[Rfam]
RNA sequence: GGAUCGGGAGGCCUCUGGUGGGACAGGGCCGGGAAUUGAUCCAAUCGUCUGUCUCGAAAGGGAACGGUGCCGGGGCCCGACGGCAUGCUGAC
Numbered sequence: 001g002g003a004u005c006g007g008g009a010g011g012c013c014u015c016u017g018g019u020g021g022g023a024c025a026g027g028g029c030c031g032g033g034a035a036u037u038g039a040u041c042c043a044a045u046c047g048u049c050u051g052u053c054u055c056g057a058a059a060g061g062g063a064a065c066g067g068u069g070c071c072g073g074g075g076c077c078c079g080a081c082g083g084c085a086u087g088c089u090g091a092c
Stems, first nucleotide, its partner, number of pairs: 001042005010030004015026003065090003068085005
Shown here is a 92-nucleotide RNA sequence from Cognatishimia maritima, a member of the family "Rhodo-rpoB RNA". Rfam classes the family as a cis-regulatory element.